[Rfam]
RNA: Small nucleolar RNA snoR53Y
Organism: Musa balbisiana
RNA sequence: GUUCCCGAUGAUGCCUAUGUUGACCAUGCUAAUGCUGAAAAGUUUUGAUGAUGAUUUGUUGUACGUUGUGAGGGAACA
Numbered sequence: 001g002u003u004c005c006c007g008a009u010g011a012u013g014c015c016u017a018u019g020u021u022g023a024c025c026a027u028g029c030u031a032a033u034g035c036u037g038a039a040a041a042g043u044u045u046u047g048a049u050g051a052u053g054a055u056u057u058g059u060u061g062u063a064c065g066u067u068g069u070g071a072g073g074g075a076a077c078a
Stems, first nucleotide, its partner, number of pairs: 001077005